[Rfam]
RNA sequence: CCAGAUCGGAGUUACUUCACCUCCUCCCGAGGUAGCUCCGUACAUGCGGGCCCACCGUCCUCCCCGGUUCGGGUUCGCCACAUUAAGAGCGGUGAUGCCACCUCCUCCCCGCAUCACCGCUUUUUU
Numbered sequence: 001c002c003a004g005a006u007c008g009g010a011g012u013u014a015c016u017u018c019a020c021c022u023c024c025u026c027c028c029g030a031g032g033u034a035g036c037u038c039c040g041u042a043c044a045u046g047c048g049g050g051c052c053c054a055c056c057g058u059c060c061u062c063c064c065c066g067g068u069u070c071g072g073g074u075u076c077g078c079c080a081c082a083u084u085a086a087g088a089g090c091g092g093u094g095a096u097g098c099c100a101c102c103u104c105c106u107c108c109c110c111g112c113a114u115c116a117c118c119g120c121u122u123u124u125u126u
Stems, first nucleotide, its partner, number of pairs: 007040003011036007046078008088121011

Alphaproteobacterial ar14: a 126-nucleotide RNA from Litoreibacter ponti. The family's RNA type in Rfam is small RNA. A search with the family's covariance model found it, with a score of 60 bits. Lineage of the source: Bacteria > Pseudomonadota > Alphaproteobacteria > Rhodobacterales > Litoreibacter. The family has 118 seed sequences and 784 matches in Rfam 15.1. Smr14C2 was renamed NfeR1 (Nodule Formation Efficiency RNA) highly expressed in salt stress and during the symbiotic interaction on legume roots.